[Rfam]
RNA: gyrA RNA
RNA sequence: UCGUAAGUCGUUGCCUGACAAUCGUCGGCAGCGGCAAGCCUUGUUCAUCCCGUACGGCUGAGCGAGGUUUCACCAGAAAAAGGAA
Numbered sequence: 001u002c003g004u005a006a007g008u009c010g011u012u013g014c015c016u017g018a019c020a021a022u023c024g025u026c027g028g029c030a031g032c033g034g035c036a037a038g039c040c041u042u043g044u045u046c047a048u049c050c051c052g053u054a055c056g057g058c059u060g061a062g063c064g065a066g067g068u069u070u071c072a073c074c075a076g077a078a079a080a081a082g083g084a085a
Stems, first nucleotide, its partner, number of pairs: 007035009018025002036070012049057002